[Rfam]
RNA sequence: GGUCAAUGAUGCUAAAUCCAAAGGCUUGUUUCUCAAAACAUUCGCAGAAGCCGCCUAAGAGCUUUCGCCUUCGCCAGGCUUGAGAGCUUGUGCUGCUAAUCCUUCCUUGGAUGUCUGAGACU
Numbered sequence: 001g002g003u004c005a006a007u008g009a010u011g012c013u014a015a016a017u018c019c020a021a022a023g024g025c026u027u028g029u030u031u032c033u034c035a036a037a038a039c040a041u042u043c044g045c046a047g048a049a050g051c052c053g054c055c056u057a058a059g060a061g062c063u064u065u066c067g068c069c070u071u072c073g074c075c076a077g078g079c080u081u082g083a084g085a086g087c088u089u090g091u092g093c094u095g096c097u098a099a100u101c102c103u104u105c106c107u108u109g110g111a112u113g114u115c116u117g118a119g120a121c122u
Stems, first nucleotide, its partner, number of pairs: 001122004061087006
RNA: Small nucleolar RNA SNORD14